[Rfam]
RNA: UnaL2 LINE 3' element
RNA sequence: UGCACUCCAUUAUUGUAAGUCGCUUUGGACAAAAGCGUCUGCCAAAUGAAAUGUA
Numbered sequence: 001u002g003c004a005c006u007c008c009a010u011u012a013u014u015g016u017a018a019g020u021c022g023c024u025u026u027g028g029a030c031a032a033a034a035g036c037g038u039c040u041g042c043c044a045a046a047u048g049a050a051a052u053g054u055a
Base pairs, nucleotide, nucleotide: 014044015042016041017040021037022036023035024034025033026032